[Rfam]
RNA sequence: GGAGGCAGGGGAAGCACGGCCACGCAGCCAACACACAGGGAGCUCGCUCCCCAGCAUGCUGCGGGGAAAGUCCCCGUGCCUUGGGGCAGAGAGUGUCAUUGGGAGACCAAAAGGCCAGCGCCUGAAGCUUGCAGUGAAGCUUUGUGCCGAGCUGUUUGGCAAGGAGCUGGCCACUUGCAGAAGCACAGUCAUGCCGUGAGAACCCGACUGGGUGCCAACUGAACGGGGCCCAUUCUCCCCAUGCCUC
Numbered sequence: 001g002g003a004g005g006c007a008g009g010g011g012a013a014g015c016a017c018g019g020c021c022a023c024g025c026a027g028c029c030a031a032c033a034c035a036c037a038g039g040g041a042g043c044u045c046g047c048u049c050c051c052c053a054g055c056a057u058g059c060u061g062c063g064g065g066g067a068a069a070g071u072c073c074c075c076g077u078g079c080c081u082u083g084g085g086g087c088a089g090a091g092a093g094u095g096u097c098a099u100u101g102g103g104a105g106a107c108c109a110a111a112a113g114g115c116c117a118g119c120g121c122c123u124g125a126a127g128c129u130u131g132c133a134g135u136g137a138a139g140c141u142u143u144g145u146g147c148c149g150a151g152c153u154g155u156u157u158g159g160c161a162a163g164g165a166g167c168u169g170g171c172c173a174c175u176u177g178c179a180g181a182a183g184c185a186c187a188g189u190c191a192u193g194c195c196g197u198g199a200g201a202a203c204c205c206g207a208c209u210g211g212g213u214g215c216c217a218a219c220u221g222a223a224c225g226g227g228g229c230c231c232a233u234u235c236u237c238c239c240c241a242u243g244c245c246u247c
Stems, first nucleotide, its partner, number of pairs: 002247005008240005015198006023063006038051005070229001072228004085097004099110004118167002121164003127160002129154001131152002139147002200215001202213004
RNA: RNase MRP
Organism: Symbiodinium pilosum